[Rfam]
RNA sequence: GGUUUGUAGGCAGUGUAGUUAGCUGAUUGUGAUCUCCCAAAACAAUCACUAGCUUCACUGUCAACAAAAC
Numbered sequence: 001g002g003u004u005u006g007u008a009g010g011c012a013g014u015g016u017a018g019u020u021a022g023c024u025g026a027u028u029g030u031g032a033u034c035u036c037c038c039a040a041a042a043c044a045a046u047c048a049c050u051a052g053c054u055u056c057a058c059u060g061u062c063a064a065c066a067a068a069a070c
Stems, first nucleotide, its partner, number of pairs: 003068004009062002012059004017054006024048007
The record is a 70-nucleotide RNA sequence from Ophiophagus hannah, which matches "mir-34 microRNA precursor family" in Rfam. Rfam 15.1 lists 2,256 matches to the family in 820 species. The base pairs follow the family's consensus structure, which was predicted with RNAalifold. Lineage of the source: Eukaryota > Deuterostomia > Squamata > Elapinae > Ophiophagus. Human mir-34a was discovered computationally and later experimentally verified. The mature sequence is excised from the 5' arm of the hairpin. On this family, see Lim et al., Science 2003: "Vertebrate microRNA genes". It is one of the family's seed sequences.